[Rfam]
A member of the RNA family "FMN riboswitch aptamer (RFN element)" from Ruminiclostridium hungatei, 129 nucleotides long. It scores 112 bits against the family's covariance model. Taxonomically the source falls in Ruminiclostridium (Bacteria, Bacillati, Clostridia, Oscillospiraceae). From the family's description: The RFN element is a highly conserved domain that is found frequently in the 5'-untranslated regions of prokaryotic mRNAs that encode for flavin mononucleotide (FMN) biosynthesis and transport proteins.
RNA sequence: GCGUAUCUUCAGGGCAGGGUGAAAAUCCCUACCGGCGGUAAUAUGCAGGAAAUGCAUUAGCCCGCGAGCGAAAGCAGACAUGGUGAGAUUCCGUGGCCGACAGUACAGUCUGGAUGAAAGAAGAAUUGG
Numbered sequence: 001g002c003g004u005a006u007c008u009u010c011a012g013g014g015c016a017g018g019g020u021g022a023a024a025a026u027c028c029c030u031a032c033c034g035g036c037g038g039u040a041a042u043a044u045g046c047a048g049g050a051a052a053u054g055c056a057u058u059a060g061c062c063c064g065c066g067a068g069c070g071a072a073a074g075c076a077g078a079c080a081u082g083g084u085g086a087g088a089u090u091c092c093g094u095g096g097c098c099g100a101c102a103g104u105a106c107a108g109u110c111u112g113g114a115u116g117a118a119a120g121a122a123g124a125a126u127u128g129g
Base pairs, nucleotide, nucleotide: 003127006124007123008122009121010120017029018028019027031109032108033099034098035065036064037063038062060097061096068075069074079095080094081093082092083091101112102111103110